[Rfam]
RNA sequence: GGUCGCGGCGUGCCAAUCGGGCAUGACGGAGACGGUGAACGCAGCGGUUUUCCCGAUUUCUCGCUGCGGGCAACGAAAAGCCAGGCGAGCACCUUUACCUGUCCGCUGC
Dot-bracket structure: .....((((.((((.....)))).(((((....((((..(((((((...............)))))))(((........))).......)))).....))))).)))).